[Rfam]
RNA: c-di-AMP riboswitch aptamer (ydaO/yuaA leader)
RNA sequence: CCUGUCACCACGCCCGAGUCAUCAGUACAAACCGCUUGGCAGGAGCGGGGGACCCACUUUUGGGCCGUCUCUCGAGAUGGUCCUUGGGGUGAAGCCCCCACGUACGCGCCCGCAAGGUCGGGUGGCAACCGUGGAGGCCGGGUGAUCUACCUCCACCCGAACCCGACAGCUCACCUCGUAGGCGCCGGAGGUUCAUCCA
Numbered sequence: 001c002c003u004g005u006c007a008c009c010a011c012g013c014c015c016g017a018g019u020c021a022u023c024a025g026u027a028c029a030a031a032c033c034g035c036u037u038g039g040c041a042g043g044a045g046c047g048g049g050g051g052a053c054c055c056a057c058u059u060u061u062g063g064g065c066c067g068u069c070u071c072u073c074g075a076g077a078u079g080g081u082c083c084u085u086g087g088g089g090u091g092a093a094g095c096c097c098c099c100a101c102g103u104a105c106g107c108g109c110c111c112g113c114a115a116g117g118u119c120g121g122g123u124g125g126c127a128a129c130c131g132u133g134g135a136g137g138c139c140g141g142g143u144g145a146u147c148u149a150c151c152u153c154c155a156c157c158c159g160a161a162c163c164c165g166a167c168a169g170c171u172c173a174c175c176u177c178g179u180a181g182g183c184g185c186c187g188g189a190g191g192u193u194c195a196u197c198c199a
Stems, first nucleotide, its partner, number of pairs: 001043007045179006055086002087164003095137002098134005140158004